[Rfam]
RNA sequence: CCAGGCGAAAACUGAAACCGCACACGUAUCGACACAUUGUCCUGGGUGCCCUCCGGGGUUGGACUAUGGGAUACGUGGAGGCUCAAC
Numbered sequence: 001c002c003a004g005g006c007g008a009a010a011a012c013u014g015a016a017a018c019c020g021c022a023c024a025c026g027u028a029u030c031g032a033c034a035c036a037u038u039g040u041c042c043u044g045g046g047u048g049c050c051c052u053c054c055g056g057g058g059u060u061g062g063a064c065u066a067u068g069g070g071a072u073a074c075g076u077g078g079a080g081g082c083u084c085a086a087c
Stems, first nucleotide, its partner, number of pairs: 023077008035068003039064004048059004
RNA: t44 RNA
Organism: Pseudomonas sp. OIL-1